[Rfam]
RNA sequence: GACUUACAUUUUGUAGCAAGGUUAACCGAAUAGGGGAGCCGUAGGGAAACCGAGUCUUAACUGGGCGUCUAGUUGCAAGGUGUAGACCCGAAACCGAGUGAUCUAGCCAUGGGCAGGUUGAAGAUUGAGUAACAUCAAUUGGAGGACCGAACCGACUACCGUUGAAAAGUUAGCGGAUGACCUGUGGCUGGGGGUGAAAGGCCAAUCAAACUCGGAGAUAGCUGGUU
Number, nucleotide and partner (000 for none) at each position: 001g000002a000003c000004u000005u084006a083007c082008a081009u080010u079011u078012u077013g076014u075015a074016g073017c072018a000019a000020g040021g039022u038023u037024a000025a000026c034027c033028g000029a000030a000031u000032a000033g027034g026035g000036g000037a023038g022039c021040c020041g000042u000043a000044g051045g050046g000047a000048a000049a000050c045051c044052g000053a000054g066055u065056c064057u063058u000059a000060a000061c000062u000063g057064g056065g055066c054067g000068u000069c000070u000071a000072g017073u016074u015075g014076c013077a012078a011079g010080g009081u008082g007083u006084a005085g000086a000087c225088c224089c000090g222091a000092a000093a000094c215095c214096g213097a212098g211099u210100g000101a000102u000103c191104u190105a189106g188107c187108c186109a185110u184111g183112g182113g181114c179115a000116g148117g147118u146119u145120g000121a000122a000123g140124a139125u138126u137127g136128a135129g000130u000131a000132a000133c000134a000135u128136c127137a126138a125139u124140u123141g000142g000143a000144g000145g119146a118147c117148c116149g000150a000151a000152c176153c175154g174155a000156c173157u172158a171159c000160c169161g000162u000163u000164g000165a000166a000167a000168a000169g160170u000171u158172a157173g156174c154175g153176g152177a000178u000179g114180a000181c113182c112183u111184g110185u109186g108187g107188c106189u105190g104191g103192g000193g203194g202195u201196g000197a000198a000199a000200g000201g195202c194203c193204a000205a000206u000207c000208a000209a000210a099211c098212u097213c096214g095215g094216a000217g000218a000219u000220a000221g000222c090223u000224g088225g087226u000227u000
Bacterial large subunit ribosomal RNA: a 227-nucleotide part of an RNA from Reinekea forsetii. The family's consensus secondary structure is taken from published work.